[Rfam]
RNA sequence: UCGGUCCCCCCGCAACGAUAAGCUGCGAACCCCGCCAGGCCCGGAAGGGAGCAACGGUAGCAGUGGACUUGUGUGCCGGGGUGCGGCUGG
Numbered sequence: 001u002c003g004g005u006c007c008c009c010c011c012g013c014a015a016c017g018a019u020a021a022g023c024u025g026c027g028a029a030c031c032c033c034g035c036c037a038g039g040c041c042c043g044g045a046a047g048g049g050a051g052c053a054a055c056g057g058u059a060g061c062a063g064u065g066g067a068c069u070u071g072u073g074u075g076c077c078g079g080g081g082u083g084c085g086g087c088u089g090g
Stems, first nucleotide, its partner, number of pairs: 002089005008081005013073001015072004022064005032057003040049003